[Rfam]
RNA: Group II catalytic intron D1-D4-3
RNA sequence: UAAAUCGUGAGAGAUAGUCUGGAGGAAGCCGCUAGCAAAUCUGCGAGCUGAUGAACAAGAACAUCAUAUGAGGCGUAGGCUGAAGGUGAGUUGGCACAAGACAACGAAACCCUGUGAUCUAACGGCCACCGUAAAUGAUGCAGCAGUGCAGAGACAGUCCAUGUU
Dot-bracket structure: ((..((....))..))...........(.((...((...((((((.((((...........((((((.....((((.(((((..(((..((((........))))...)))...........)))))).)))..))))))))))..))))))....))...)).)